RNA sequence: GACCGUGCGGUGAGCACAGAGCGAACUAUUCUUUCGCCUUUUACUAAAGAAUACCGUGUGCUCGCCGCUCAUUGCGGCAUACGCCUAUUUUUGGAGGCCGAACUCUUUCAUUGGAA
Numbered sequence: 001g002a003c004c005g006u007g008c009g010g011u012g013a014g015c016a017c018a019g020a021g022c023g024a025a026c027u028a029u030u031c032u033u034u035c036g037c038c039u040u041u042u043a044c045u046a047a048a049g050a051a052u053a054c055c056g057u058g059u060g061c062u063c064g065c066c067g068c069u070c071a072u073u074g075c076g077g078c079a080u081a082c083g084c085c086u087a088u089u090u091u092u093g094g095a096g097g098c099c100g101a102a103c104u105c106u107u108u109c110a111u112u113g114g115a116a
Base pairs, nucleotide, nucleotide: 003077004076005075006074008067009066010065011064012063013062014061015060016059017058018057027053028052029051030050031049032048033047034046098114099113100112101111

Background: Rfam assigns this 116-nucleotide RNA from Gossypium anomalum to the family "U5 spliceosomal RNA". By type it is a spliceosomal small nuclear RNA. From the family's description: U5 RNA is a component of both types of known spliceosome. NCBI's taxonomy places the organism under Eukaryota, Embryophyta, Magnoliopsida, eudicotyledons, Gossypium. The family's consensus secondary structure is taken from published work.